RNA sequence: GUAGUCGCGAGGCUGGGUCUGAAGGAAGUCCGAGGCAAACUUCCGAACCGACGGACAGAAAUCACAUAUAAGGCUGUAUCAGUGGACGAGUUUACAAAGAGUGACGAAAUCCACACUACAACUGAUGCAGUAAAUGUGGCGGUUGCCUGGAAGGAAAGUCAUUAUU
Dot-bracket structure: .(((((....)))))............(...(..((...(((((((((((...........((((((.....(((.((((((((((...(((..........)))....)))........))))))).)))..)))))))))))...))))))....))..)...)
The record is a 166-nucleotide sequence from Marispirochaeta aestuarii, which matches "Group II catalytic intron D1-D4-3" in Rfam.
The match comes from Rfam's covariance-model search (130 bits).
Gene Ontology term of the family: Group II intron splicing.